This 465-nucleotide RNA from Gallus gallus belongs to the Rfam family "Vertebrate telomerase RNA". Telomerase is a ribonucleoprotein reverse transcriptase that synthesises telomeric DNA. Telomerase RNAs differ greatly in sequence and structure between vertebrates, ciliates and yeasts, but they share a 5' pseudoknot structure close to the template sequence. For this family Rfam cites "Secondary structure of vertebrate telomerase RNA" (Chen et al., Cell, 2000). NCBI's taxonomy places the organism under Eukaryota, Metazoa, Bilateria, Theropoda, Gallus gallus. Rfam links the family to the GO terms telomerase activity, telomerase catalytic core complex and telomere maintenance via telomerase.

[Rfam]
RNA sequence: ACGCGUGGCGGGUGGAAGGCUCCGCUGUGCCUAACCCUAAUCGGGGGAAUUGAUGGUGCUGUCGCCGCGCUCCCUCCGCCCGCCCGCUGUUUUACUCGCUGACUUUCAGCGGGCGAGAGGAGCCGCCCCGGGGGGGAGGCGGGCGGCGGGAGGGGGCCGGGGCGCCGCGGCGGUGGGGGUCGGGGGGGGGAGAGAAAGGGCCGAAAGGGGCUCCGCGGCCAAAAAAACGUCAGCGAGGGGUCCGCUCGCCCCGAUCCGCCCUGGGGUCCCCGCUCGCGUGGCCGCGGUCGGCCGGCACCCGCCAUUGCCGCCGCGAAGAGUUCGCCUCUGUCAGCCUCGGCGGCGCGCGGGAGGUGCGGCGCGCGGCCCCGCGCCCCCAGCAGAGCAAACGGGAGCGGCGCCCCCGGGGUAACCCCCGCGCUCCCCUGCGCCGUGGGGCGCGCGGACGGCGUCGCUCCCACACGC
Numbered sequence: 001a002c003g004c005g006u007g008g009c010g011g012g013u014g015g016a017a018g019g020c021u022c023c024g025c026u027g028u029g030c031c032u033a034a035c036c037c038u039a040a041u042c043g044g045g046g047g048a049a050u051u052g053a054u055g056g057u058g059c060u061g062u063c064g065c066c067g068c069g070c071u072c073c074c075u076c077c078g079c080c081c082g083c084c085c086g087c088u089g090u091u092u093u094a095c096u097c098g099c100u101g102a103c104u105u106u107c108a109g110c111g112g113g114c115g116a117g118a119g120g121a122g123c124c125g126c127c128c129c130g131g132g133g134g135g136g137a138g139g140c141g142g143g144c145g146g147c148g149g150g151a152g153g154g155g156g157c158c159g160g161g162g163c164g165c166c167g168c169g170g171c172g173g174u175g176g177g178g179g180u181c182g183g184g185g186g187g188g189g190g191a192g193a194g195a196a197a198g199g200g201c202c203g204a205a206a207g208g209g210g211c212u213c214c215g216c217g218g219c220c221a222a223a224a225a226a227a228c229g230u231c232a233g234c235g236a237g238g239g240g241u242c243c244g245c246u247c248g249c250c251c252c253g254a255u256c257c258g259c260c261c262u263g264g265g266g267u268c269c270c271c272g273c274u275c276g277c278g279u280g281g282c283c284g285c286g287g288u289c290g291g292c293c294g295g296c297a298c299c300c301g302c303c304a305u306u307g308c309c310g311c312c313g314c315g316a317a318g319a320g321u322u323c324g325c326c327u328c329u330g331u332c333a334g335c336c337u338c339g340g341c342g343g344c345g346c347g348c349g350g351g352a353g354g355u356g357c358g359g360c361g362c363g364c365g366g367c368c369c370c371g372c373g374c375c376c377c378c379a380g381c382a383g384a385g386c387a388a389a390c391g392g393g394a395g396c397g398g399c400g401c402c403c404c405c406g407g408g409g410u411a412a413c414c415c416c417c418g419c420g421c422u423c424c425c426c427u428g429c430g431c432c433g434u435g436g437g438g439c440g441c442g443c444g445g446a447c448g449g450c451g452u453c454g455c456u457c458c459c460a461c462a463c464g465c
Stems, first nucleotide, its partner, number of pairs: 005255002008252001010251006018242005069123005081115009098234006104227003261380006269351005274340003283315005289310004294303003317329004393457010416445005423438004